[Rfam]
drum RNA: a 112-nucleotide sequence.
RNA sequence: AAGCGAUGAUAUCAAGGGGCAUGCCAAGAGCGUUGAGUUGAUCUUGCGGGAGGGGUUGCACAGUGAAACCUCAACUUGGCGUAAGCAUUUUUGCCGAAAGAAAAUGUAAAUA
Numbered sequence: 001a002a003g004c005g006a007u008g009a010u011a012u013c014a015a016g017g018g019g020c021a022u023g024c025c026a027a028g029a030g031c032g033u034u035g036a037g038u039u040g041a042u043c044u045u046g047c048g049g050g051a052g053g054g055g056u057u058g059c060a061c062a063g064u065g066a067a068a069c070c071u072c073a074a075c076u077u078g079g080c081g082u083a084a085g086c087a088u089u090u091u092u093g094c095c096g097a098a099a100g101a102a103a104a105u106g107u108a109a110a111u112a
Base pairs, nucleotide, nucleotide: 001045002044003043011038012037018034019033020032022030024079025078026077027076060107061106062105085094086093087092